The record is a 76-nucleotide RNA from Leptidea sinapis, which matches "mir-971 microRNA precursor family" in Rfam.

RNA sequence: CACUCAGAACACUCUAAGUAUGAAUGCCAAGCAUAAUUAUUAAAGUUUGGUGUUCUACCUUACAGUGAUCUGUGUG
Numbered sequence: 001c002a003c004u005c006a007g008a009a010c011a012c013u014c015u016a017a018g019u020a021u022g023a024a025u026g027c028c029a030a031g032c033a034u035a036a037u038u039a040u041u042a043a044a045g046u047u048u049g050g051u052g053u054u055c056u057a058c059c060u061u062a063c064a065g066u067g068a069u070c071u072g073u074g075u076g
Base pairs, nucleotide, nucleotide: 006071007070008069010067011066012065013064015062016061017060025052026051027050028049029048030047031046032045
The family's consensus secondary structure was predicted with RNAalifold.